[Rfam]
RNA sequence: CUGCACGCUUUCCAAGGAUCCGGCCUUUCUGUAGUCCUGGGUUCUCCAAGAGUGUGCGAGAGCAACGGGGAGACUUUGUCUGUCAGGGCUGCGCAGUGCCAGCGGCAGUCACUCUACUGCCCCACACCU
Numbered sequence: 001c002u003g004c005a006c007g008c009u010u011u012c013c014a015a016g017g018a019u020c021c022g023g024c025c026u027u028u029c030u031g032u033a034g035u036c037c038u039g040g041g042u043u044c045u046c047c048a049a050g051a052g053u054g055u056g057c058g059a060g061a062g063c064a065a066c067g068g069g070g071a072g073a074c075u076u077u078g079u080c081u082g083u084c085a086g087g088g089c090u091g092c093g094c095a096g097u098g099c100c101a102g103c104g105g106c107a108g109u110c111a112c113u114c115u116a117c118u119g120c121c122c123c124a125c126a127c128c129u
Stems, first nucleotide, its partner, number of pairs: 012040002017036003023030001067122003071118002082109002084102001086100002
The record is a 129-nucleotide RNA sequence from Albula goreensis, which matches "Small nucleolar RNA SNORA44" in Rfam. Pairs were carried over by alignment from the consensus structure, which was predicted with PFOLD. Rfam 15.1 lists 1,056 matches to the family in 599 species. From the family's description: ACA44 is a member of the H/ACA class of snoRNA that guide the sites of modification of uridines to pseudouridines. For this family Rfam cites "RNomics: an experimental approach that identifies 201 candidates for novel, small, non-messenger RNAs in mouse" (Huttenhofer et al., EMBO J, 2001).